Small nucleolar RNA Z266: an 89-nucleotide RNA from Oryza punctata. Rfam classes the family as a C/D-box small nucleolar RNA. A search with the family's covariance model found it, with a score of 89 bits. Rfam links the family to the GO terms RNA processing and nucleolus. Lineage of the source: Eukaryota > Magnoliopsida > Petrosaviidae > Oryzoideae > Oryza.
[Rfam]
RNA sequence: ACUUGGCAGUAGUGAUGAAUCAAUUAGAUGUGUGAAGGGACUUUAUGAACUUAACUUUUGAGGCAUACAUUCUGUCUGAACUGCCAUAU
Numbered sequence: 001a002c003u004u005g006g007c008a009g010u011a012g013u014g015a016u017g018a019a020u021c022a023a024u025u026a027g028a029u030g031u032g033u034g035a036a037g038g039g040a041c042u043u044u045a046u047g048a049a050c051u052u053a054a055c056u057u058u059u060g061a062g063g064c065a066u067a068c069a070u071u072c073u074g075u076c077u078g079a080a081c082u083g084c085c086a087u088a089u
Stems, first nucleotide, its partner, number of pairs: 001089001004086007